[Rfam]
RNA sequence: UCCCUGCUUUUCCUCCCUGAGCAGGUGCCUUACGUGAUGACAGCGUUAAGGCUUCACAGCCCCGGCCUAUCGCCGGGGCUCUUUUUU
Numbered sequence: 001u002c003c004c005u006g007c008u009u010u011u012c013c014u015c016c017c018u019g020a021g022c023a024g025g026u027g028c029c030u031u032a033c034g035u036g037a038u039g040a041c042a043g044c045g046u047u048a049a050g051g052c053u054u055c056a057c058a059g060c061c062c063c064g065g066c067c068u069a070u071c072g073c074c075g076g077g078g079c080u081c082u083u084u085u086u087u
Base pairs, nucleotide, nucleotide: 003025004024005023006022007021008020027052028051029050030049032046033045034044059079060078061077062076063075064074065073066072